[Rfam]
Rfam assigns this 63-nucleotide sequence from Ancylomarina salipaludis to the family "Fluoride riboswitch aptamer (crcB RNA motif)".
RNA sequence: AGCUCUAAAGGAAAUGGGGUUUUCCUACUUAACUGCCUUCUGGCUGAUGACUCCUGCGAAAAU
Numbered sequence: 001a002g003c004u005c006u007a008a009a010g011g012a013a014a015u016g017g018g019g020u021u022u023u024c025c026u027a028c029u030u031a032a033c034u035g036c037c038u039u040c041u042g043g044c045u046g047a048u049g050a051c052u053c054c055u056g057c058g059a060a061a062a063u
Stems, first nucleotide, its partner, number of pairs: 010025004016054006035044003
It scores 55 bits against the family's covariance model.